[Rfam]
A member of the RNA family "Plastid-rpl16 group II-D1 intron" from Protea cynaroides, 47 nucleotides long.
RNA sequence: AAAAGCCUCCAAUCAAUAAAGACUGAGGAGAUUGAUUCAAGAACAAA
Numbered sequence: 001a002a003a004a005g006c007c008u009c010c011a012a013u014c015a016a017u018a019a020a021g022a023c024u025g026a027g028g029a030g031a032u033u034g035a036u037u038c039a040a041g042a043a044c045a046a047a
Stems, first nucleotide, its partner, number of pairs: 007041002011037007